[Rfam]
RNA sequence: GUUUUAUGAUGAAACUCAUGCGUGUCAACUGAUCCCAGAAACCCUUGGGGCUCCCGGUGGCCGGUUGGCGUUCUGUCAGCCGGUUGUUAGUGGCCUCAAGGCUCUGGGGGCAUGAUCUGACGGUACAGCUGAAAAC
Numbered sequence: 001g002u003u004u005u006a007u008g009a010u011g012a013a014a015c016u017c018a019u020g021c022g023u024g025u026c027a028a029c030u031g032a033u034c035c036c037a038g039a040a041a042c043c044c045u046u047g048g049g050g051c052u053c054c055c056g057g058u059g060g061c062c063g064g065u066u067g068g069c070g071u072u073c074u075g076u077c078a079g080c081c082g083g084u085u086g087u088u089a090g091u092g093g094c095c096u097c098a099a100g101g102c103u104c105u106g107g108g109g110g111c112a113u114g115a116u117c118u119g120a121c122g123g124u125a126c127a128g129c130u131g132a133a134a135a136c
Stems, first nucleotide, its partner, number of pairs: 001136004044100009
Shown here is a 136-nucleotide RNA from Coregonus sp. 'balchen', a member of the family "Small nucleolar RNA SNORD10". By type it is a C/D-box small nucleolar RNA. It scores 78 bits against the family's covariance model. Rfam 15.1 lists 433 matches to the family in 306 species. Rfam links the family to the GO terms nucleolus and RNA processing. For this family Rfam cites "RNomics: an experimental approach that identifies 201 candidates for novel, small, non-messenger RNAs in mouse" (Huttenhofer et al., EMBO J, 2001). Pairs were carried over by alignment from the consensus structure, which was predicted with WAR.